The record is a 181-nucleotide RNA sequence from Paenibacillus foliorum, which matches "6S / SsrS RNA" in Rfam.
[Rfam]
RNA sequence: UAAAUCCUGCGAUGUUCGUUACGAUUUUAAGUUGUUUUGAACCAAUGACUGUUUCUUGGGAGACCUAUAUUGAAUCGUGGCUGACCUGCCCUCGAAAAGGGACUUCAAAAUCGAUUCUGCGGACACCCACCUGCGAGAGCGGGUUUGAGACGCUAAAUCGGACGGCAUUUGCGGGUUUUUU
Numbered sequence: 001u002a003a004a005u006c007c008u009g010c011g012a013u014g015u016u017c018g019u020u021a022c023g024a025u026u027u028u029a030a031g032u033u034g035u036u037u038u039g040a041a042c043c044a045a046u047g048a049c050u051g052u053u054u055c056u057u058g059g060g061a062g063a064c065c066u067a068u069a070u071u072g073a074a075u076c077g078u079g080g081c082u083g084a085c086c087u088g089c090c091c092u093c094g095a096a097a098a099g100g101g102a103c104u105u106c107a108a109a110a111u112c113g114a115u116u117c118u119g120c121g122g123a124c125a126c127c128c129a130c131c132u133g134c135g136a137g138a139g140c141g142g143g144u145u146u147g148a149g150a151c152g153c154u155a156a157a158u159c160g161g162a163c164g165g166c167a168u169u170u171g172c173g174g175g176u177u178u179u180u181u
Base pairs, nucleotide, nucleotide: 002179003178004177006175007174008173009172010171011170012168013167014166015165017164018163019162033152034151035150036149038147039146040145041144042143043142058128059127060126062124064122065121069118072117073116074115075114076113077112084105089101090100091099092098
Record summary: It is annotated as a non-coding RNA gene. Pairs were carried over by alignment from the consensus structure, which is taken from published work.